[Rfam]
The family of this 132-nucleotide RNA from Diabrotica balteata is "Small Cajal body specific RNA 8". The source organism's lineage runs through Eukaryota, Dicondylia, Neuropteroidea, Chrysomeloidea and Diabrotica. The family's RNA type in Rfam is small Cajal body RNA. From the family's description: scaRNAs are a specific class of small nuclear RNAs which localise to the Cajal bodies and guide the modification of RNA polymerase II transcribed spliceosomal RNAs U1, U2, U4, U5 and U12. U92 belong to the H/ACA box class of guide RNAs as it has the predicted hairpin-hinge-hairpin-tail structure, conserved H/ACA-box motifs and is found associated with GAR1. Rfam 15.1 lists 955 matches to the family in 741 species.
RNA sequence: UGGAAGUUUCAUACGUGUAUAAAAUAUCACACUAUGUUUUAUACAUCACUGUACUUCCUAGAUAAUACAGGUUCUCUGAUGACCUCAGUUGGAUGAAGUUUUGGACGGAGGACAGAUACGGAACCGACAAUU
Number, nucleotide and partner (000 for none) at each position: 001u000002g058003g057004a056005a055006g054007u053008u000009u000010c000011a000012u000013a000014c000015g046016u045017g044018u043019a000020u000021a000022a039023a038024a037025u036026a000027u000028c000029a000030c000031a000032c000033u000034a000035u000036g025037u024038u023039u022040u000041a000042u000043a018044c017045a016046u015047c000048a000049c000050u000051g000052u000053a007054c006055u005056u004057c003058c002059u000060a000061g000062a000063u000064a000065a000066u000067a000068c126069a000070g125071g124072u123073u122074c121075u120076c000077u000078g000079a000080u000081g000082a000083c111084c110085u109086c000087a000088g106089u105090u104091g000092g000093a000094u000095g000096a000097a000098g000099u000100u000101u000102u000103g000104g090105a089106c088107g000108g000109a085110g084111g083112a000113c000114a000115g000116a000117u000118a000119c000120g075121g074122a073123a072124c071125c070126g068127a000128c000129a000130a000131u000132u000